[Rfam]
RNA sequence: UAGCUCAUCUCCUGUAAGUCGCUCUGGAUAAGAGCGUCUGCUAAAUGACUAAAA
Numbered sequence: 001u002a003g004c005u006c007a008u009c010u011c012c013u014g015u016a017a018g019u020c021g022c023u024c025u026g027g028a029u030a031a032g033a034g035c036g037u038c039u040g041c042u043a044a045a046u047g048a049c050u051a052a053a054a
Base pairs, nucleotide, nucleotide: 013043014041015040016039020036021035022034023033024032025031
RNA: UnaL2 LINE 3' element
Organism: Coregonus sp. 'balchen'